[Rfam]
Nucleotides: 121
Stems, first nucleotide, its partner, number of pairs: 007115007020062006064100003067096002071094003
Number, partner (000 for none) and nucleotide at each position: 001000c002000g003000a004000u005000g006000c007115c008114g009113u010112g011111c012110g013109g014000g015000a016000g017000a018000g019000u020062c021061c022060u023059c024058g025057c026000c027000g028000a029000a030000c031000a032000g033000g034000u035000c036000c037000a038000c039000a040000u041000u042000g043000u044000g045000g046000u047000c048000c049000u050000a051000g052000u053000u054000u055000g056000a057025g058024u059023g060022g061021g062020g063000c064100g065099c066098c067096g068095a069000a070000g071094g072093a073092g074000c075000a076000a077000c078000a079000c080000c081000u082000c083000u084000c085000c086000g087000a088000c089000a090000a091000u092073c093072u094071c095068u096067c097000a098066g099065g100064c101000a102000c103000c104000c105000a106000g107000g108000a109013c110012c111011g112010u113009g114008c115007g116000a117000g118000c119000u120000g121000c